[Rfam]
RNA: TPP riboswitch aptamer (THI element)
Organism: Clostridium cellulovorans
RNA sequence: AAUUAACGCUAGGGGUGCCUUUGGCUGAGAAAUGAUUUAUCAUUAACCCUUAUACCUGAUCUGGUUAGUACCAGCGUAGGAAAGCUAUAUUUGCCUAGU
Numbered sequence: 001a002a003u004u005a006a007c008g009c010u011a012g013g014g015g016u017g018c019c020u021u022u023g024g025c026u027g028a029g030a031a032a033u034g035a036u037u038u039a040u041c042a043u044u045a046a047c048c049c050u051u052a053u054a055c056c057u058g059a060u061c062u063g064g065u066u067a068g069u070a071c072c073a074g075c076g077u078a079g080g081a082a083a084g085c086u087a088u089a090u091u092u093g094c095c096u097a098g099u
Stems, first nucleotide, its partner, number of pairs: 008085003011050004017025003032043004055080004061074004